[Rfam]
RNA sequence: CAGUUGUGAUGAUAUGCCAUAUGGUUUCGCAAAUUAUUUCAGAAGUCUUUUGAUGAUAUACUUGGCCGUCUGAACUG
Numbered sequence: 001c002a003g004u005u006g007u008g009a010u011g012a013u014a015u016g017c018c019a020u021a022u023g024g025u026u027u028c029g030c031a032a033a034u035u036a037u038u039u040c041a042g043a044a045g046u047c048u049u050u051u052g053a054u055g056a057u058a059u060a061c062u063u064g065g066c067c068g069u070c071u072g073a074a075c076u077g
Stems, first nucleotide, its partner, number of pairs: 001077004